The family of this 107-nucleotide RNA from Rosa chinensis is "mir-393 microRNA precursor family". The match comes from Rfam's covariance-model search (95 bits). The source organism's lineage runs through Eukaryota, Viridiplantae, Spermatophyta, Magnoliopsida and Rosa. Rfam 15.1 lists 1,052 matches to the family in 221 species.
RNA sequence: GGUGGAGGCUUCCAAAGGGAUCGCAUUGAUCUAAUUUUGUAACCCUAAUCACAUCCACAUGGUAUUUGCUGUUAAUUGGAUCAUGCGAUCCCUUCGGAAGCUUCCAU
Numbered sequence: 001g002g003u004g005g006a007g008g009c010u011u012c013c014a015a016a017g018g019g020a021u022c023g024c025a026u027u028g029a030u031c032u033a034a035u036u037u038u039g040u041a042a043c044c045c046u047a048a049u050c051a052c053a054u055c056c057a058c059a060u061g062g063u064a065u066u067u068g069c070u071g072u073u074a075a076u077u078g079g080a081u082c083a084u085g086c087g088a089u090c091c092c093u094u095c096g097g098a099a100g101c102u103u104c105c106a107u
Stems, first nucleotide, its partner, number of pairs: 002107005008101006015094007023086004028082005036075001